[Rfam]
RNA: mir-221 microRNA precursor family
Organism: Oncorhynchus kisutch
RNA sequence: UAGGUUGUUGACCUGGCAUACAGUGUAGAAUUCUGUGUGGGUGAUUCUACAGCUACAUUGUCUGCUGGGUUUUAGGCCCUACUC
Numbered sequence: 001u002a003g004g005u006u007g008u009u010g011a012c013c014u015g016g017c018a019u020a021c022a023g024u025g026u027a028g029a030a031u032u033c034u035g036u037g038u039g040g041g042u043g044a045u046u047c048u049a050c051a052g053c054u055a056c057a058u059u060g061u062c063u064g065c066u067g068g069g070u071u072u073u074a075g076g077c078c079c080u081a082c083u084c
Base pairs, nucleotide, nucleotide: 013068014067015066016065017064018063020061021060022059023058024057025056026055027054028053033052034051035050036049